This 59-nucleotide RNA from Molossus molossus belongs to the Rfam family "Small nucleolar RNA SNORD56". Its family is annotated with RNA processing and nucleolus in the Gene Ontology. For this family Rfam cites "Purified box C/D snoRNPs are able to reproduce site-specific 2'-O-methylation of target RNA in vitro" (Galardi et al., Mol Cell Biol, 2002). Rfam classes the family as a C/D-box small nucleolar RNA.

RNA sequence: CUAUUAGGAUGGCAAUAAAUUUUACCUACAGCAGAUCAUGAUACCUUGGGACUGAAAAA
Numbered sequence: 001c002u003a004u005u006a007g008g009a010u011g012g013c014a015a016u017a018a019a020u021u022u023u024a025c026c027u028a029c030a031g032c033a034g035a036u037c038a039u040g041a042u043a044c045c046u047u048g049g050g051a052c053u054g055a056a057a058a059a
Stems, first nucleotide, its partner, number of pairs: 002058001004056001008026001010024002
Record summary:
Lineage of the source: Eukaryota > Chordata > Gnathostomata > Teleostomi > Molossus.